[Rfam]
RNA: tRNA
Organism: Candidatus Vidania fulgoroideorum
RNA sequence: GGAGAUAUGACUGAGAGGUUUAUAGUAUUCCCCUGCUAAGGGAAAAUACAACAAAAUUGUAUCAUAGGUUCAAAUCCUAUUAUCUCCU
Numbered sequence: 001g002g003a004g005a006u007a008u009g010a011c012u013g014a015g016a017g018g019u020u021u022a023u024a025g026u027a028u029u030c031c032c033c034u035g036c037u038a039a040g041g042g043a044a045a046a047u048a049c050a051a052c053a054a055a056a057u058u059g060u061a062u063c064a065u066a067g068g069u070u071c072a073a074a075u076c077c078u079a080u081u082a083u084c085u086c087c088u
Base pairs, nucleotide, nucleotide: 001087002086003085004084005083006082007081010026011025012024013023028044029043030042031041032040064080065079066078067077068076